[Rfam]
RNA sequence: AUUUGUUCGUGUGUGGAUGGCGGUCAGCACCAAGGACAGGCACCUUUGCUUGUGCGUGGAUGGCGGUCAGCACCAAGGACAGGCAUAUUUGUGU
Number, nucleotide and partner (000 for none) at each position: 001a000002u000003u000004u085005g084006u083007u082008c000009g080010u079011g000012u000013g000014u000015g000016g000017a000018u075019g074020g073021c000022g071023g000024u069025c000026a067027g000028c065029a000030c063031c062032a061033a000034g055035g000036a053037c052038a051039g050040g049041c048042a047043c000044c000045u000046u000047u042048g041049c040050u039051u038052g037053u036054g000055c034056g000057u000058g000059g000060a000061u032062g031063g030064c000065g028066g000067u026068c000069a024070g000071c022072a000073c020074c019075a018076a000077g000078g000079a010080c009081a000082g007083g006084c005085a004086u000087a000088u000089u000090u000091g000092u000093g000094u000
RNA: mir-2060 microRNA precursor family
Organism: Branchiostoma belcheri